[Rfam]
RNA sequence: GACCUAACCCUUGGCGUUAAACCCGAGGCACGGUCGCAAAACCCGCUAGAGAUCAAAGGACUCCUGGUCAGAGUCACUCUAGCGGGUCAUAUCGGGAAACCGGUAUGGGUUUGGCCGAAAGGUCGGACC
Numbered sequence: 001g002a003c004c005u006a007a008c009c010c011u012u013g014g015c016g017u018u019a020a021a022c023c024c025g026a027g028g029c030a031c032g033g034u035c036g037c038a039a040a041a042c043c044c045g046c047u048a049g050a051g052a053u054c055a056a057a058g059g060a061c062u063c064c065u066g067g068u069c070a071g072a073g074u075c076a077c078u079c080u081a082g083c084g085g086g087u088c089a090u091a092u093c094g095g096g097a098a099a100c101c102g103g104u105a106u107g108g109g110u111u112u113g114g115c116c117g118a119a120a121g122g123u124c125g126g127a128c129c
Stems, first nucleotide, its partner, number of pairs: 001035004009028006042086010059075004088107008108129009
The family of this 129-nucleotide sequence is "LOOT RNA". The family's RNA type in Rfam is small RNA. Rfam's curators put it in the seed alignment.